[Rfam]
RNA: TPP riboswitch aptamer (THI element)
RNA sequence: AGGUAAGUUAAGGGGUGUCCGCCGUGGGCGGGCUGAGAUCAGACCCUCUGACCUGAUACGGGUAAUGCCGGCGUAGGGAUCAAUGAGCACACUGAU
Numbered sequence: 001a002g003g004u005a006a007g008u009u010a011a012g013g014g015g016u017g018u019c020c021g022c023c024g025u026g027g028g029c030g031g032g033c034u035g036a037g038a039u040c041a042g043a044c045c046c047u048c049u050g051a052c053c054u055g056a057u058a059c060g061g062g063u064a065a066u067g068c069c070g071g072c073g074u075a076g077g078g079a080u081c082a083a084u085g086a087g088c089a090c091a092c093u094g095a096u
Stems, first nucleotide, its partner, number of pairs: 006084001008082001010080001011047004016041001017033005052077004059070003